[Rfam]
RNA sequence: GGGGCUGAACGGUUUCGACUGCGUGCGUCUAGGUAGGGGAAGCGUGUCGGUGCAGGCUAGAGACCACCGUAAGCGUCAUAGCAAACAAUUAAGCGCCGACAAAAAUCAGCGCGACUACGCCCUCGCUGCCUAAGCGACGGCUGGUCUGUCGGCCCGGGUGAGCUCUCGCCCCGGGUACCGGCAUCAUUCAGAGAGCUAACCGUUGCGGGCGGUCGCGGACCGCAAUGGGACAUCAAACAGCGACUGGGAUCGUCAUCUCAGCUUGUUCGCGUGACUGAGAGAUCCGAGUAGAGACUUAGCGAACUGCACACGGAGAAGCCCUACUGACACGGCGAAGGACCCGGGUUCGAUUCCCGGCAGCUCCACCG
Number, nucleotide and partner (000 for none) at each position: 001g364002g363003g362004g361005c360006u359007g358008a000009a000010c000011g000012g000013u000014u000015u000016c000017g000018a000019c337020u336021g000022c334023g333024u332025g000026c000027g330028u329029c000030u327031a000032g325033g324034u323035a322036g321037g320038g319039g000040a000041a000042g000043c312044g311045u310046g309047u308048c069049g068050g067051u066052g065053c000054a000055g000056g082057c081058u080059a079060g000061a000062g000063a000064c000065c052066a051067c050068c049069g048070u000071a000072a000073g000074c000075g000076u000077c000078a000079u059080a058081g057082c056083a000084a000085a000086c000087a000088a000089u000090u000091a000092a000093g000094c000095g000096c000097c000098g000099a000100c000101a000102a000103a000104a000105a000106u000107c000108a000109g000110c000111g000112c000113g000114a000115c000116u000117a000118c000119g000120c000121c000122c000123u140124c139125g135126c134127u000128g000129c000130c000131u000132a000133a000134g126135c125136g000137a000138c000139g124140g123141c000142u000143g000144g000145u000146c000147u183148g182149u181150c180151g179152g178153c175154c174155c173156g172157g000158g170159u000160g000161a000162g196163c195164u194165c193166u192167c191168g000169c000170c158171c000172c156173g155174g154175g153176u000177a000178c152179c151180g150181g149182c148183a147184u000185c000186a000187u000188u000189c000190a000191g167192a166193g165194a164195g163196c162197u000198a000199a000200c228201c227202g226203u225204u224205g223206c222207g221208g220209g000210c000211g245212g244213u243214c242215g241216c240217g000218g000219a000220c208221c207222g206223c205224a204225a203226u202227g201228g200229g000230a000231c000232a000233u000234c000235a000236a000237a000238c000239a000240g216241c215242g214243a213244c212245u211246g000247g285248g284249a283250u282251c281252g000253u280254c279255a000256u277257c000258u000259c000260a276261g275262c000263u000264u000265g304266u303267u302268c301269g000270c000271g000272u000273g296274a000275c261276u260277g256278a000279g254280a253281g251282a250283u249284c248285c247286g000287a000288g000289u000290a000291g000292a000293g000294a000295c000296u273297u000298a000299g000300c000301g268302a267303a266304c265305u000306g000307c000308a047309c046310a045311c044312g043313g000314a000315g000316a000317a000318g000319c038320c037321c036322u035323a034324c033325u032326g000327a030328c000329a028330c027331g000332g024333c023334g022335a000336a020337g019338g000339a000340c000341c357342c356343g355344g354345g353346u000347u000348c000349g000350a000351u000352u000353c345354c344355c343356g342357g341358c007359a006360g005361c004362u003363c002364c001365a000366c000367c000368g000
RNA: transfer-messenger RNA
Organism: Williamsia sp. 1138